[Rfam]
RNA sequence: AUGGCCGACUCCAAGCUGCCCGACGUCCAGUCCGGCUACGAGAAGGGCAUCACCAAUGUCAUGGCCGGCUUGUCCGGCCUCAAUCUGGUCUAUGAGUCCG
Numbered sequence: 001a002u003g004g005c006c007g008a009c010u011c012c013a014a015g016c017u018g019c020c021c022g023a024c025g026u027c028c029a030g031u032c033c034g035g036c037u038a039c040g041a042g043a044a045g046g047g048c049a050u051c052a053c054c055a056a057u058g059u060c061a062u063g064g065c066c067g068g069c070u071u072g073u074c075c076g077g078c079c080u081c082a083a084u085c086u087g088g089u090c091u092a093u094g095a096g097u098c099c100g
Base pairs, nucleotide, nucleotide: 003012025032035060077098079096080095